[Rfam]
RNA: T-box leader
Organism: Dialister sp. CAG:357
RNA sequence: AUACAAGCGAUGAAGAGAAGAGUACGCGGAAAGAGAGCCAAAGAGAGUCCCGAAUGGUGAGAAGGGACGCCGGACAUCCGCCGAACAUGGCCUUGGAGCAUGCGCCGCCGAAUGAUGAAGUGGCCCGGGAGUUCCCGUUACAGGACAGGAGUGCCUUGCACUUCACAAGGUCUUUCCGGCGACGGAAAGGCGAACAUGGGUGGUACCACGAAACAGAAUCCUUCGUCCCGUCG
Numbered sequence: 001a002u003a004c005a006a007g008c009g010a011u012g013a014a015g016a017g018a019a020g021a022g023u024a025c026g027c028g029g030a031a032a033g034a035g036a037g038c039c040a041a042a043g044a045g046a047g048u049c050c051c052g053a054a055u056g057g058u059g060a061g062a063a064g065g066g067a068c069g070c071c072g073g074a075c076a077u078c079c080g081c082c083g084a085a086c087a088u089g090g091c092c093u094u095g096g097a098g099c100a101u102g103c104g105c106c107g108c109c110g111a112a113u114g115a116u117g118a119a120g121u122g123g124c125c126c127g128g129g130a131g132u133u134c135c136c137g138u139u140a141c142a143g144g145a146c147a148g149g150a151g152u153g154c155c156u157u158g159c160a161c162u163u164c165a166c167a168a169g170g171u172c173u174u175u176c177c178g179g180c181g182a183c184g185g186a187a188a189g190g191c192g193a194a195c196a197u198g199g200g201u202g203g204u205a206c207c208a209c210g211a212a213a214c215a216g217a218a219u220c221c222u223u224c225g226u227c228c229c230g231u232c233g
Stems, first nucleotide, its partner, number of pairs: 007099002015094003026081005037070002047068005102124001105123004126137003156187002197230004208226005